[Rfam]
RNA: Fluoride riboswitch aptamer (crcB RNA motif)
RNA sequence: CAGGGCGCAGGGGAUGGAGUCCCCCUUGAACCGCGAAUGCCGCUGAUGACUCCUGCUGUACG
Number, nucleotide and partner (000 for none) at each position: 001c000002a000003g000004g000005g000006c000007g000008c000009a000010g025011g024012g023013g022014a000015u000016g053017g052018a051019g050020u049021c048022c013023c012024c011025c010026u000027u000028g000029a000030a000031c000032c000033g043034c042035g041036a000037a000038u000039g000040c000041c035042g034043c033044u000045g000046a000047u000048g021049a020050c019051u018052c017053c016054u000055g000056c000057u000058g000059u000060a000061c000062g000